[Rfam]
RNA sequence: UUAUAAAUCUAUCACGCAUAUAUGUAUUGGGGUUUUGGGGUUUAUAUAUAUAAACCCCAAUACAUAUAUGCGUGAUAAAUUUAUAA
Numbered sequence: 001u002u003a004u005a006a007a008u009c010u011a012u013c014a015c016g017c018a019u020a021u022a023u024g025u026a027u028u029g030g031g032g033u034u035u036u037g038g039g040g041u042u043u044a045u046a047u048a049u050a051u052a053a054a055c056c057c058c059a060a061u062a063c064a065u066a067u068a069u070g071c072g073u074g075a076u077a078a079a080u081u082u083a084u085a086a
Stems, first nucleotide, its partner, number of pairs: 001086003005082003010079001011076004016071004023064008